Shown here is a 196-nucleotide RNA from Paraburkholderia xenovorans, a member of the family "Manganese Mn2+ riboswitch aptamer (yybP-ykoY)". The base pairs follow the family's consensus structure. Rfam's curators write: This RNA was originally discovered in E. coli during a large scale screen and was named SraF. The family was later found to exist upstream of related families of protein genes in many bacteria, including the the yybP and ykoK genes in B. subtilis.
RNA sequence: CCGUUAGAAUCCCCCGGUCACUGGGGAGUAGCCUUCCUUCAUCGUUUGAAGGAGAACGCGUCAACAUACUUGGCCUUGCAGGUCAUGGCGCGUUCGGCCGUGUCGGUUUGGCGAGACCAUUGACGCACUGCCUCGUUCUGGUCGGACGGGCGGCGGUGCGUCAUUGGUUUGUCGUCUACGUCCGACCGUGGAGUUG
Numbered sequence: 001c002c003g004u005u006a007g008a009a010u011c012c013c014c015c016g017g018u019c020a021c022u023g024g025g026g027a028g029u030a031g032c033c034u035u036c037c038u039u040c041a042u043c044g045u046u047u048g049a050a051g052g053a054g055a056a057c058g059c060g061u062c063a064a065c066a067u068a069c070u071u072g073g074c075c076u077u078g079c080a081g082g083u084c085a086u087g088g089c090g091c092g093u094u095c096g097g098c099c100g101u102g103u104c105g106g107u108u109u110g111g112c113g114a115g116a117c118c119a120u121u122g123a124c125g126c127a128c129u130g131c132c133u134c135g136u137u138c139u140g141g142u143c144g145g146a147c148g149g150g151c152g153g154c155g156g157u158g159c160g161u162c163a164u165u166g167g168u169u170u171g172u173c174g175u176c177u178a179c180g181u182c183c184g185a186c187c188g189u190g191g192a193g194u195u196g
Base pairs, nucleotide, nucleotide: 036052037051038050054095055094056093057092058091059090060089061088062087063086071085072084073083074082075081101196102195